[Rfam]
RNA sequence: UUAUAGAACAGGCAUACCUGGCUGAAAAGCAGGGGCGCAAAGUCACAGGUCUACGGUGAUUCACUACGACAGCUGGACUGCCUAG
Numbered sequence: 001u002u003a004u005a006g007a008a009c010a011g012g013c014a015u016a017c018c019u020g021g022c023u024g025a026a027a028a029g030c031a032g033g034g035g036c037g038c039a040a041a042g043u044c045a046c047a048g049g050u051c052u053a054c055g056g057u058g059a060u061u062c063a064c065u066a067c068g069a070c071a072g073c074u075g076g077a078c079u080g081c082c083u084a085g
Stems, first nucleotide, its partner, number of pairs: 012038002017033004022029002041079004046075003049070003056064003

The family of this 85-nucleotide RNA sequence from Alicyclobacillus hesperidum is "c-di-GMP-I riboswitch aptamer". A search with the family's covariance model found it, with a score of 66 bits. The family's consensus secondary structure is taken from published work.